[Rfam]
RNA: FMN riboswitch aptamer (RFN element)
RNA sequence: UAAAAUUCUCAGGGCGGGGUGUAAUUCCCCACCGGCGGUAUGUUCCCGGCACAGAUUUUUAACCGGGAAUGAGCCCGCGAGCGCCCGGUUAUCCGGGGUCAGCAGAUCUGGUGAAAAGCCAGAGCCGACGGUAAUAGUCCGGAUGAGAGAGAAUUAAA
Numbered sequence: 001u002a003a004a005a006u007u008c009u010c011a012g013g014g015c016g017g018g019g020u021g022u023a024a025u026u027c028c029c030c031a032c033c034g035g036c037g038g039u040a041u042g043u044u045c046c047c048g049g050c051a052c053a054g055a056u057u058u059u060u061a062a063c064c065g066g067g068a069a070u071g072a073g074c075c076c077g078c079g080a081g082c083g084c085c086c087g088g089u090u091a092u093c094c095g096g097g098g099u100c101a102g103c104a105g106a107u108c109u110g111g112u113g114a115a116a117a118g119c120c121a122g123a124g125c126c127g128a129c130g131g132u133a134a135u136a137g138u139c140c141g142g143a144u145g146a147g148a149g150a151g152a153a154u155u156a157a158a
Stems, first nucleotide, its partner, number of pairs: 004155007017029003031138002033127002035078004073125002081103002107123005129141003
Dot-bracket structure: ...(((((((......(((.......))).[[((((((..................................[[))))..((...................))...(((((.......)))))]])).(((.....]]))).......)))))))...